[Rfam]
RNA: Fibrobacter-1 RNA
RNA sequence: UAUUUAGGUUCCCUAGGUCGCGUGGGGCGGAAUUGCGGUACUUUCCGUAAGGAACCCCCCGAGGCUCGGAAGCGCUCCAUACUUUUGGAGGGCUUUUUAGGG
Numbered sequence: 001u002a003u004u005u006a007g008g009u010u011c012c013c014u015a016g017g018u019c020g021c022g023u024g025g026g027g028c029g030g031a032a033u034u035g036c037g038g039u040a041c042u043u044u045c046c047g048u049a050a051g052g053a054a055c056c057c058c059c060c061g062a063g064g065c066u067c068g069g070a071a072g073c074g075c076u077c078c079a080u081a082c083u084u085u086u087g088g089a090g091g092g093c094u095u096u097u098u099a100g101g102g
Stems, first nucleotide, its partner, number of pairs: 011102005018030004034049005068097004075090005